This 119-nucleotide RNA sequence belongs to the Rfam family "Alphaproteobacterial ar15".
The family has 61 seed sequences and 316 matches in Rfam 15.1.
It scores 92 bits against the family's covariance model.
Gene Ontology term of the family: protein binding.
For this family Rfam cites "A survey of sRNA families in alpha-proteobacteria" (del Val et al., RNA Biol, 2012).
The base pairs follow the family's consensus structure.

RNA sequence: AGCUGAUGCAGUCUGGUGGAUCAUCUUCCUCCCAGUCCACCGCAGCAGCUGUUCCCCUCUGGAGGUUUGCAAAAACCUUCAACCUUAGAAGGACCCAGGUUUUCUUGCGGUCCUCUUUU
Numbered sequence: 001a002g003c004u005g006a007u008g009c010a011g012u013c014u015g016g017u018g019g020a021u022c023a024u025c026u027u028c029c030u031c032c033c034a035g036u037c038c039a040c041c042g043c044a045g046c047a048g049c050u051g052u053u054c055c056c057c058u059c060u061g062g063a064g065g066u067u068u069g070c071a072a073a074a075a076c077c078u079u080c081a082a083c084c085u086u087a088g089a090a091g092g093a094c095c096c097a098g099g100u101u102u103u104c105u106u107g108c109g110g111u112c113c114u115c116u117u118u119u
Stems, first nucleotide, its partner, number of pairs: 001050005007044003016040004060081007090114006096107004